[Rfam]
The record is a 239-nucleotide RNA sequence from Pseudohoeflea suaedae, which matches "permuted transfer-messenger RNA" in Rfam. Its family is annotated with RNA catabolic process in the Gene Ontology. Taxonomically the source falls in Pseudohoeflea (Bacteria, Pseudomonadota, Alphaproteobacteria, Hyphomicrobiales). It is annotated as a non-coding RNA gene. Pairs were carried over by alignment from the consensus structure, which is taken from published work. A search with the family's covariance model found it, with a score of 150 bits.
RNA sequence: GGCAAUAAACGGCGUUGUAAUAAGCCAUUCGGACCCGGGGGCGGUACCCGGCGCCUCCACCAAGAUCCGGCGAAGCCGGGCCACACCCGCUCAGGGCGCGGCCGGAUGUUGAUGGGGGCGAAACAGGAUCGACGAGGGUGUAAAGAACGACUUUUUGCUCGGCAUGAUACCACCGUUAUCGGGUCACAAGUGUAGUUGCAAACGACAACAACGCUAAGGGUUACGCUGUCGCUGCCUAA
Numbered sequence: 001g002g003c004a005a006u007a008a009a010c011g012g013c014g015u016u017g018u019a020a021u022a023a024g025c026c027a028u029u030c031g032g033a034c035c036c037g038g039g040g041g042c043g044g045u046a047c048c049c050g051g052c053g054c055c056u057c058c059a060c061c062a063a064g065a066u067c068c069g070g071c072g073a074a075g076c077c078g079g080g081c082c083a084c085a086c087c088c089g090c091u092c093a094g095g096g097c098g099c100g101g102c103c104g105g106a107u108g109u110u111g112a113u114g115g116g117g118g119c120g121a122a123a124c125a126g127g128a129u130c131g132a133c134g135a136g137g138g139u140g141u142a143a144a145g146a147a148c149g150a151c152u153u154u155u156u157g158c159u160c161g162g163c164a165u166g167a168u169a170c171c172a173c174c175g176u177u178a179u180c181g182g183g184u185c186a187c188a189a190g191u192g193u194a195g196u197u198g199c200a201a202a203c204g205a206c207a208a209c210a211a212c213g214c215u216a217a218g219g220g221u222u223a224c225g226c227u228g229u230c231g232c233u234g235c236c237u238a239a
Base pairs, nucleotide, nucleotide: 001159002158003157004156005155013149014148015147016146025138026137029135030134031133035051036050037049038048039047052120053119054118055117056116057115058114160175161174162173